[Rfam]
A member of the RNA family "S10-Clostridia ribosomal protein leader" from Candidatus Apopatosoma intestinale, 76 nucleotides long. For this family Rfam cites "Discovery of 20 novel ribosomal leader candidates in bacteria and archaea" (Eckert and Weinberg, BMC Microbiol, 2020). The source organism's lineage runs through Bacteria, Bacillota, Clostridia, Eubacteriales and Candidatus Apopatosoma.
RNA sequence: UGAUGUGCGAUGAAGCGAGAGGUUGCCGCAAUUUGCGGGUAAUUUUCGCAGAGUAUGUCCGAACAAAAACGGGCGA
Numbered sequence: 001u002g003a004u005g006u007g008c009g010a011u012g013a014a015g016c017g018a019g020a021g022g023u024u025g026c027c028g029c030a031a032u033u034u035g036c037g038g039g040u041a042a043u044u045u046u047c048g049c050a051g052a053g054u055a056u057g058u059c060c061g062a063a064c065a066a067a068a069a070c071g072g073g074c075g076a
Stems, first nucleotide, its partner, number of pairs: 015049003019046004026038005056075006